[Rfam]
RNA sequence: UGCAGCCUUGUCAAAUUCAGUAAGCCCUCCCUGGUGGACUCUACUGGCCAAAAUGGCUGCUACAGUGACAUGGUAGUUCAUGGGCCCCACAUCUUAAUCAUGUGGAUUCUGGGGAUAAGUUAGUGCUACGGACAGUU
Numbered sequence: 001u002g003c004a005g006c007c008u009u010g011u012c013a014a015a016u017u018c019a020g021u022a023a024g025c026c027c028u029c030c031c032u033g034g035u036g037g038a039c040u041c042u043a044c045u046g047g048c049c050a051a052a053a054u055g056g057c058u059g060c061u062a063c064a065g066u067g068a069c070a071u072g073g074u075a076g077u078u079c080a081u082g083g084g085c086c087c088c089a090c091a092u093c094u095u096a097a098u099c100a101u102g103u104g105g106a107u108u109c110u111g112g113g114g115a116u117a118a119g120u121u122a123g124u125g126c127u128a129c130g131g132a133c134a135g136u137u
Stems, first nucleotide, its partner, number of pairs: 002060004018046005023040002026037002073129005078123001085114005
The family of this 137-nucleotide RNA from Lepisosteus oculatus is "Small nucleolar RNA SNORA5". The family is grouped with related families in Rfam's "SNORA5 clan". Rfam describes the family as follows. ACA5 is a member of the H/ACA class of snoRNA that guide the sites of modification of uridines to pseudouridines. Lineage of the source: Eukaryota > Teleostomi > Neopterygii > Lepisosteidae > Lepisosteus.